RNA sequence: GGGAUCGUGGCGCAGUUGGCUAGCGCGUAGGUCUCAUAUCAUGUAUGCGAUUUAUAUCCUAAGGUCGUGAGUUCGAGCCUCACCGAUCCCA
Number, nucleotide and partner (000 for none) at each position: 001g090002g089003g088004a087005u086006c085007g084008u000009g000010g026011c025012g024013c023014a000015g000016u000017u000018g000019g000020c000021u000022a000023g013024c012025g011026c010027g000028u061029a060030g059031g058032u000033c000034u000035c000036a000037u000038a000039u000040c000041a000042u000043g000044u000045a000046u000047g000048c000049g000050a000051u000052u000053u000054a000055u000056a000057u000058c031059c030060u029061a028062a000063g000064g000065u000066c000067g083068u082069g081070a080071g079072u000073u000074c000075g000076a000077g000078c000079c071080u070081c069082a068083c067084c007085g006086a005087u004088c003089c002090c001091a000
This 91-nucleotide RNA sequence from Ophiostoma piceae belongs to the Rfam family "tRNA". NCBI's taxonomy places the organism under Eukaryota, Dikarya, Ascomycota, Sordariomycetes, Ophiostoma piceae. Pairs were carried over by alignment from the consensus structure, which is taken from published work. Rfam classes the family as a transfer RNA.